[Rfam]
RNA sequence: ACGACCUUACUUGAACAGGAUCUGUUCUAUAGGCUCGUACCUCUGUAUCCUUGAGUUCUAAGGAGACAGGAACCUCAGUCUGGUGGAUGAACAAUGACCGUGCGAUCAGAGCGUGAUUAACUGCUUAACCUGCUUUGUUGGGUCAGGGCUGUAGAGGAUCGUUCUCAGCCGAGCUUUGGCUCGACUGGGAUGGUCGCACGGUUGUCUGACAGAC
Numbered sequence: 001a002c003g004a005c006c007u008u009a010c011u012u013g014a015a016c017a018g019g020a021u022c023u024g025u026u027c028u029a030u031a032g033g034c035u036c037g038u039a040c041c042u043c044u045g046u047a048u049c050c051u052u053g054a055g056u057u058c059u060a061a062g063g064a065g066a067c068a069g070g071a072a073c074c075u076c077a078g079u080c081u082g083g084u085g086g087a088u089g090a091a092c093a094a095u096g097a098c099c100g101u102g103c104g105a106u107c108a109g110a111g112c113g114u115g116a117u118u119a120a121c122u123g124c125u126u127a128a129c130c131u132g133c134u135u136u137g138u139u140g141g142g143u144c145a146g147g148g149c150u151g152u153a154g155a156g157g158a159u160c161g162u163u164c165u166c167a168g169c170c171g172a173g174c175u176u177u178g179g180c181u182c183g184a185c186u187g188g189g190a191u192g193g194u195c196g197c198a199c200g201g202u203u204g205u206c207u208g209a210c211a212g213a214c
Stems, first nucleotide, its partner, number of pairs: 001038002003035001005033003013027006043069004048064006078214005097202012110163004123152002129147004133142003165188004170183005
RNA: Plant small nucleolar RNA U3